[Rfam]
RNA sequence: GGUUGAGCAAUUUUUUGCUUUCAAGAGAACUGAAGGCUUCUGGGGUGGGAAGCU
Number, nucleotide and partner (000 for none) at each position: 001g000002g000003u024004u023005g022006a019007g018008c017009a016010a015011u000012u000013u000014u000015u010016u009017g008018c007019u006020u000021u000022c005023a004024a003025g000026a000027g000028a000029a000030c000031u000032g000033a000034a000035g054036g053037c052038u051039u050040c049041u048042g000043g000044g000045g000046u000047g000048g041049g040050a039051a038052g037053c036054u035
A member of the RNA family "Na+ riboswitch aptamer (DUF1646)" from Ruminiclostridium hungatei, 54 nucleotides long. The source organism's lineage runs through Bacteria, Bacillati, Clostridia, Eubacteriales and Ruminiclostridium. The literature on the family includes a 2022 paper in Nat Chem Biol by White et al., "Na(+) riboswitches regulate genes for diverse physiological processes in bacteria". The base pairs follow the family's consensus structure, which is taken from published work.